[Rfam]
RNA: Purine riboswitch aptamer
RNA sequence: AUCAAAACUAUAUAAAUGACUCGUAUAACGCCGGGGAUAUGGCCCGGAAGUAUCUACCUGGAGACCGAAAAUUUCCGGACUACGAGGGUAUCUGUACUUUUA
Numbered sequence: 001a002u003c004a005a006a007a008c009u010a011u012a013u014a015a016a017u018g019a020c021u022c023g024u025a026u027a028a029c030g031c032c033g034g035g036g037a038u039a040u041g042g043c044c045c046g047g048a049a050g051u052a053u054c055u056a057c058c059u060g061g062a063g064a065c066c067g068a069a070a071a072u073u074u075c076c077g078g079a080c081u082a083c084g085a086g087g088g089u090a091u092c093u094g095u096a097c098u099u100u101u102a
Stems, first nucleotide, its partner, number of pairs: 020086006031047005058078007